Shown here is a 578-nucleotide part of an RNA from uncultured marine crenarchaeote AD1000-23-H12, a member of the family "Archaeal large subunit ribosomal RNA".

[Rfam]
RNA sequence: CUUCAGUCGGGAAGAGAAGACCCUGUGGAGCUUUACUGCAGCUUGUGGUUGUGAUGUAAGUAUGGUUGCAGAGAGUAGCUGGUAGCCGUUAUGCGCAUGCUUUCGGGUGUGUGAUAGGCAAAAGUGUAACACCAGCCAUCUAUAAUUAUUUCGCUAACCUCUUCGGAGGGACACCUGCAGGUGGGCAGUUUGGCUGGGGCGGCACCCCCUUGAAAAGAUAUCGAGGGGGCCCAAAGGUCGGCUCAGGUGGUUCAGAACUCCACCGUUGAGGGCAAGGCUAAAUGCCGGCUUGACUGGAUCUUUAACAGAAGAAGAUUCAGGGGCGAAAGCCUGGCCUAGCGAUCCUCCAGAUCCUCACUGUUGGGGGUUGGAGGUGACAGAAAAGUUACCCCAGGGAUAACAGGCUUGUCGCGGGCGAGAGCUCUAAUCGACCCCGCGGAUUGGUACCUCGAUGUCGGCUCUUCCCAUCCUGGUCCUGCAGCAGGGGCCAAGGGUGGGGCUGCUCGCCCAUUAAAGGGGAACGUGAGCUGGGUUUAGACCGUCGUGAGACAGGUCGGUCUCUAUCUGACUGAAGCGGA
Numbered sequence: 001c002u003u004c005a006g007u008c009g010g011g012a013a014g015a016g017a018a019g020a021c022c023c024u025g026u027g028g029a030g031c032u033u034u035a036c037u038g039c040a041g042c043u044u045g046u047g048g049u050u051g052u053g054a055u056g057u058a059a060g061u062a063u064g065g066u067u068g069c070a071g072a073g074a075g076u077a078g079c080u081g082g083u084a085g086c087c088g089u090u091a092u093g094c095g096c097a098u099g100c101u102u103u104c105g106g107g108u109g110u111g112u113g114a115u116a117g118g119c120a121a122a123a124g125u126g127u128a129a130c131a132c133c134a135g136c137c138a139u140c141u142a143u144a145a146u147u148a149u150u151u152c153g154c155u156a157a158c159c160u161c162u163u164c165g166g167a168g169g170g171a172c173a174c175c176u177g178c179a180g181g182u183g184g185g186c187a188g189u190u191u192g193g194c195u196g197g198g199g200c201g202g203c204a205c206c207c208c209c210u211u212g213a214a215a216a217g218a219u220a221u222c223g224a225g226g227g228g229g230c231c232c233a234a235a236g237g238u239c240g241g242c243u244c245a246g247g248u249g250g251u252u253c254a255g256a257a258c259u260c261c262a263c264c265g266u267u268g269a270g271g272g273c274a275a276g277g278c279u280a281a282a283u284g285c286c287g288g289c290u291u292g293a294c295u296g297g298a299u300c301u302u303u304a305a306c307a308g309a310a311g312a313a314g315a316u317u318c319a320g321g322g323g324c325g326a327a328a329g330c331c332u333g334g335c336c337u338a339g340c341g342a343u344c345c346u347c348c349a350g351a352u353c354c355u356c357a358c359u360g361u362u363g364g365g366g367g368u369u370g371g372a373g374g375u376g377a378c379a380g381a382a383a384a385g386u387u388a389c390c391c392c393a394g395g396g397a398u399a400a401c402a403g404g405c406u407u408g409u410c411g412c413g414g415g416c417g418a419g420a421g422c423u424c425u426a427a428u429c430g431a432c433c434c435c436g437c438g439g440a441u442u443g444g445u446a447c448c449u450c451g452a453u454g455u456c457g458g459c460u461c462u463u464c465c466c467a468u469c470c471u472g473g474u475c476c477u478g479c480a481g482c483a484g485g486g487g488c489c490a491a492g493g494g495u496g497g498g499g500c501u502g503c504u505c506g507c508c509c510a511u512u513a514a515a516g517g518g519g520a521a522c523g524u525g526a527g528c529u530g531g532g533u534u535u536a537g538a539c540c541g542u543c544g545u546g547a548g549a550c551a552g553g554u555c556g557g558u559c560u561c562u563a564u565c566u567g568a569c570u571g572a573a574g575c576g577g578a
Stems, first nucleotide, its partner, number of pairs: 001574008010566003014561002022395004027391002029387005035189004042181007051154004056149004061144005067138002078136005085119003097110005158169004192205001193203003206228006231334002237289006243269002246264005270279002294320009322331001324329001345373005351368001353367004404445003408442001409439007419429002456531001457529004461523001462520005469494002473488005497509004537555004541550003

Gene Ontology terms of the family: structural constituent of ribosome and ribosome. The base pairs follow the family's consensus structure, which is taken from published work.